A member of the RNA family "ssNA-helicase RNA", 51 nucleotides long. It is annotated as a small RNA.
Nucleotides: 051
Base pairs, nucleotide, nucleotide: 001033002032003031004030005029006028007027008026009025010024011023
Number, partner (000 for none) and nucleotide at each position: 001033u002032a003031u004030g005029c006028u007027a008026a009025g010024g011023g012000g013000g014000a015000a016000g017000u018000a019000u020000u021000a022000c023011c024010c025009c026008u027007u028006a029005g030004c031003a032002u033001a034000u035000a036000u037000a038000u039000g040000u041000a042000g043000c044000a045000u046000g047000u048000a049000g050000c051000a